[Rfam]
RNA sequence: GCGUCCUGCUCGUGAUCGUCUUCUCAACCUUCACUUGCAGGCGGAUAAAACGGCCGGCCCCCGCGAGGACCUGACUCGCGGGGGCGGGCU
Numbered sequence: 001g002c003g004u005c006c007u008g009c010u011c012g013u014g015a016u017c018g019u020c021u022u023c024u025c026a027a028c029c030u031u032c033a034c035u036u037g038c039a040g041g042c043g044g045a046u047a048a049a050a051c052g053g054c055c056g057g058c059c060c061c062c063g064c065g066a067g068g069a070c071c072u073g074a075c076u077c078g079c080g081g082g083g084g085c086g087g088g089c090u
Stems, first nucleotide, its partner, number of pairs: 002043002005041005012034004018028002052090004057085011
Annotation
The family of this 90-nucleotide sequence from Streptomyces sp. ISL-96 is "sodF sRNA". The family's RNA type in Rfam is small RNA. Gene Ontology terms of the family: regulation of mRNA stability, mRNA binding and negative regulation of translation. Lineage of the source: Bacteria > Actinomycetota > Kitasatosporales > Streptomycetaceae > Streptomyces.